[Rfam]
RNA sequence: CCAGUCGGCCGGACGACCGCUGCUGCAAGACCGAAAGGUCGCAGGGGAGGAAAGUCCGGGCUCCAUGGAAACACGGUGCCGGGUAACGCCCGGCGGGGGCGACCCCAGGGAAAGUGCCACAGAAAGCAAACCGCCCGGGCGUUCGCGCCACGGGUAAGGGUGAAAGGGUGGGGUAAGAGCCCACCGCGGUCCCAGCAAUGGGAACGGCACGGUAAACCCCACCGGGAGCAAGACCGAAUAGGGGCGACACGGGCGCAAGCCCAGCCUGUUUCCAGGUCCGUCGCCCGGGUUGGUCGCGAGAGGCGUCCGGUAACGGGCGUCCCAGAUGAAUGGUCGUCACGCGGCGGUUCGCCGCCGCCCUACAGAACCCGGCUUACAGGCCGGCUGGCAAA
Numbered sequence: 001c002c003a004g005u006c007g008g009c010c011g012g013a014c015g016a017c018c019g020c021u022g023c024u025g026c027a028a029g030a031c032c033g034a035a036a037g038g039u040c041g042c043a044g045g046g047g048a049g050g051a052a053a054g055u056c057c058g059g060g061c062u063c064c065a066u067g068g069a070a071a072c073a074c075g076g077u078g079c080c081g082g083g084u085a086a087c088g089c090c091c092g093g094c095g096g097g098g099g100c101g102a103c104c105c106c107a108g109g110g111a112a113a114g115u116g117c118c119a120c121a122g123a124a125a126g127c128a129a130a131c132c133g134c135c136c137g138g139g140c141g142u143u144c145g146c147g148c149c150a151c152g153g154g155u156a157a158g159g160g161u162g163a164a165a166g167g168g169u170g171g172g173g174u175a176a177g178a179g180c181c182c183a184c185c186g187c188g189g190u191c192c193c194a195g196c197a198a199u200g201g202g203a204a205c206g207g208c209a210c211g212g213u214a215a216a217c218c219c220c221a222c223c224g225g226g227a228g229c230a231a232g233a234c235c236g237a238a239u240a241g242g243g244g245c246g247a248c249a250c251g252g253g254c255g256c257a258a259g260c261c262c263a264g265c266c267u268g269u270u271u272c273c274a275g276g277u278c279c280g281u282c283g284c285c286c287g288g289g290u291u292g293g294u295c296g297c298g299a300g301a302g303g304c305g306u307c308c309g310g311u312a313a314c315g316g317g318c319g320u321c322c323c324a325g326a327u328g329a330a331u332g333g334u335c336g337u338c339a340c341g342c343g344g345c346g347g348u349u350c351g352c353c354g355c356c357g358c359c360c361u362a363c364a365g366a367a368c369c370c371g372g373c374u375u376a377c378a379g380g381c382c383g384g385c386u387g388g389c390a391a392a
Base pairs, nucleotide, nucleotide: 001388002387003386004385005384006383007382008381009380010379011377012338013337014336015335016334017333018332020047021046023044024043025042026041028039052375053374054373056372057371058370059369060368061228062227063226064225071271074224075223076222077221078220079093080092081091082090083089094108095106096105097104098103109219110218114217115216116213117212118211131159132158133155134154135153136152137151138149139148140147141146167185168184169183170182171181172180186208187206188205190203191202192201193200194199232295233294234293235292242286243285244284245283246282247281264278266276267275302321303320304319305318306317307316308315309314

Shown here is a 392-nucleotide RNA sequence from Kaistia sp. 32K, a member of the family "Bacterial RNase P class A". For this family Rfam cites "Identification and characterization of small RNAs in Yersinia pestis" (Beauregard et al., RNA Biol, 2013). Clan: RNaseP clan. A search with the family's covariance model found it, with a score of 306 bits. The family's RNA type in Rfam is ribozyme.